TPP riboswitch aptamer (THI element): a 110-nucleotide RNA sequence from Nocardioides thalensis. The organism belongs to Nocardioides, within Bacteria.

[Rfam]
RNA sequence: CCAAUAAACCACGGGAGUCCGCGGCAGCGGGCUGAGAGGGAGCUGGGGCCGCUCCGACCGUCACACCUGAUCCGGGUCAUGCCGGCGAAGGAAGGCUGAUCGUGAAGCGA
Numbered sequence: 001c002c003a004a005u006a007a008a009c010c011a012c013g014g015g016a017g018u019c020c021g022c023g024g025c026a027g028c029g030g031g032c033u034g035a036g037a038g039g040g041a042g043c044u045g046g047g048g049c050c051g052c053u054c055c056g057a058c059c060g061u062c063a064c065a066c067c068u069g070a071u072c073c074g075g076g077u078c079a080u081g082c083c084g085g086c087g088a089a090g091g092a093a094g095g096c097u098g099a100u101c102g103u104g105a106a107g108c109g110a
Stems, first nucleotide, its partner, number of pairs: 007097001009095002011061004017032005039055005066091003072085004
Dot-bracket structure: ......(.((((((..(((((......)))))......(((((.......)))))..))))....(((...((((......))))...)))..)).).............